Shown here is a 233-nucleotide sequence from Saccharopolyspora rhizosphaerae, a member of the family "Actinobacteria sRNA Ms_IGR-5". Pairs were carried over by alignment from the consensus structure. The family's RNA type in Rfam is small RNA.
RNA sequence: ACACAGGAAAGGAGGUGGUCCAACGGUGAAUACCAACAGGACUUGUGAGGUGGCUGUCCGCUAGGACCGCCCCCGGCUGUACAAGUCGGCCCGUCGCGCGCCCAUCUGGUUCGAUGACCGCGCGGGGAAGCGGCCGGCGAAUACCAGGCAGCUACCCGGCCCCGGAGCCCCGAACUGCGUCCGGUUCGGCCUCCUCGUCCACCGAGGAGGAAGCGGCUCCGGGGCUGCUGCGU
Numbered sequence: 001a002c003a004c005a006g007g008a009a010a011g012g013a014g015g016u017g018g019u020c021c022a023a024c025g026g027u028g029a030a031u032a033c034c035a036a037c038a039g040g041a042c043u044u045g046u047g048a049g050g051u052g053g054c055u056g057u058c059c060g061c062u063a064g065g066a067c068c069g070c071c072c073c074c075g076g077c078u079g080u081a082c083a084a085g086u087c088g089g090c091c092c093g094u095c096g097c098g099c100g101c102c103c104a105u106c107u108g109g110u111u112c113g114a115u116g117a118c119c120g121c122g123c124g125g126g127g128a129a130g131c132g133g134c135c136g137g138c139g140a141a142u143a144c145c146a147g148g149c150a151g152c153u154a155c156c157c158g159g160c161c162c163c164g165g166a167g168c169c170c171c172g173a174a175c176u177g178c179g180u181c182c183g184g185u186u187c188g189g190c191c192u193c194c195u196c197g198u199c200c201a202c203c204g205a206g207g208a209g210g211a212a213g214c215g216g217c218u219c220c221g222g223g224g225c226u227g228c229u230g231c232g233u
Stems, first nucleotide, its partner, number of pairs: 014058006059139004064135002067133004072127003157227013170189006